Record summary
Shown here is a 193-nucleotide RNA from Oryza sativa, a member of the family "MIR812 microRNA precursor family". NCBI's taxonomy places the organism under Eukaryota, Streptophytina, Spermatophyta, Oryzinae, Oryza sativa. The match comes from Rfam's covariance-model search (84 bits). The family's consensus secondary structure was predicted with RNAalifold. Rfam 15.1 lists 57,451 matches to the family in 24 species.

RNA sequence: UAUAAGGGAUUUUGAGUGUGUGUUUGCAACGUUUGACCACUCGUCUUAUUCAAAAAAUUUUGAAAUUAUUAUUUAUUUUAUUUGUGACUUACUUUAUUAUCUACAAUACUUUAAGCACAACUUUUCGUUUUUUAUAUUUGCAAAAAAAAUUUAAAUAAGACGAGUGGUCAAAUAUUGCAAUCAAAAACUUAAA
Number, nucleotide and partner (000 for none) at each position: 001u000002a000003u000004a000005a000006g000007g000008g000009a000010u000011u000012u000013u000014g000015a000016g000017u000018g000019u000020g000021u000022g000023u000024u000025u179026g178027c177028a176029a175030c000031g000032u172033u171034u170035g169036a168037c167038c166039a165040c164041u163042c162043g161044u160045c159046u158047u157048a156049u155050u000051c000052a000053a000054a000055a000056a000057a000058u000059u000060u000061u000062g000063a000064a000065a000066u000067u000068a000069u000070u000071a000072u000073u000074u000075a000076u000077u000078u000079u000080a000081u000082u000083u000084g000085u000086g000087a000088c000089u000090u000091a000092c000093u000094u000095u000096a000097u000098u000099a000100u000101c000102u000103a000104c000105a000106a000107u000108a000109c000110u000111u000112u000113a000114a000115g000116c000117a000118c000119a000120a000121c000122u000123u000124u000125u000126c000127g000128u000129u000130u000131u000132u000133u000134a000135u000136a000137u000138u000139u000140g000141c000142a000143a000144a000145a000146a000147a000148a000149a000150u000151u000152u000153a000154a000155a049156u048157a047158a046159g045160a044161c043162g042163a041164g040165u039166g038167g037168u036169c035170a034171a033172a032173u000174a000175u029176u028177g027178c026179a025180a000181u000182c000183a000184a000185a000186a000187a000188c000189u000190u000191a000192a000193a000